Rfam assigns this 53-nucleotide RNA from Sophora tonkinensis to the family "Plastid-ccsA-ndhD-1 3UTR RNA". Rfam's curators put it in the seed alignment. Pairs were carried over by alignment from the consensus structure, which was predicted with LocARNA. NCBI's taxonomy places the organism under Eukaryota, Embryophyta, Mesangiospermae, Sophoreae, Sophora. The family's RNA type in Rfam is cis-regulatory element. Plastid-ccsA-ndhD-1 is a non-coding RNA (ncRNA) recognised in plastids. Clan: Plastid-ccsA_ndhD 3UTR RNA clan.
RNA sequence: GUCGAGAACCCUUUAAAUCAAGUAAUAUAGUGACUCAAGGGGUUCUCACAAAC
Numbered sequence: 001g002u003c004g005a006g007a008a009c010c011c012u013u014u015a016a017a018u019c020a021a022g023u024a025a026u027a028u029a030g031u032g033a034c035u036c037a038a039g040g041g042g043u044u045c046u047c048a049c050a051a052a053c
Stems, first nucleotide, its partner, number of pairs: 004047011016035001018033003
Dot-bracket structure: ...(((((((((((.(.(((..........))).).)))))))))))......